[Rfam]
RNA sequence: GCAGAAGGUUACUCACUCAACUUGGCUGUGAUGACAAAUAAAGGCGUCACAACCUCCUUGAGUGAGUGACCUUCCCU
Numbered sequence: 001g002c003a004g005a006a007g008g009u010u011a012c013u014c015a016c017u018c019a020a021c022u023u024g025g026c027u028g029u030g031a032u033g034a035c036a037a038a039u040a041a042a043g044g045c046g047u048c049a050c051a052a053c054c055u056c057c058u059u060g061a062g063u064g065a066g067u068g069a070c071c072u073u074c075c076c077u
Stems, first nucleotide, its partner, number of pairs: 009068001012066009024054002027051007
Dot-bracket structure: ........(..(((((((((...((.(((((((...........))))))).))...))))))))).).........